This 133-nucleotide RNA sequence from Catagonus wagneri belongs to the Rfam family "Small nucleolar RNA SNORA11". The family's consensus secondary structure was predicted with RNAalifold. Rfam links the family to the GO terms RNA processing and nucleolus. About the family: U107 (SNORA11) is a member of the H/ACA class of snoRNAs that guide the sites of modification of uridines to pseudouridines. This snoRNA was identified by RT-PCR from blood cells and its expression confirmed by Northern blot analysis. There is no predicted target for this guide snRNA. The family's RNA type in Rfam is H/ACA-box small nucleolar RNA.
RNA sequence: GGGGUGUGCUCAGAGCAGGGGGCCAGAAGAAGUGGCUCCUCUGUUUCUGACACACCCAACAAGGAUCUGGGUUAUUGUGACAAGGGGCAGUAAACUUGUGGCCUGGCUGGCUGUAAAUCAAGGCCCUCCUCGU
Numbered sequence: 001g002g003g004g005u006g007u008g009c010u011c012a013g014a015g016c017a018g019g020g021g022g023c024c025a026g027a028a029g030a031a032g033u034g035g036c037u038c039c040u041c042u043g044u045u046u047c048u049g050a051c052a053c054a055c056c057c058a059a060c061a062a063g064g065a066u067c068u069g070g071g072u073u074a075u076u077g078u079g080a081c082a083a084g085g086g087g088c089a090g091u092a093a094a095c096u097u098g099u100g101g102c103c104u105g106g107c108u109g110g111c112u113g114u115a116a117a118u119c120a121a122g123g124c125c126c127u128c129c130u131c132g133u
Stems, first nucleotide, its partner, number of pairs: 002057007013046009022036003070126002072123001077118002082114001084104003088100002092096001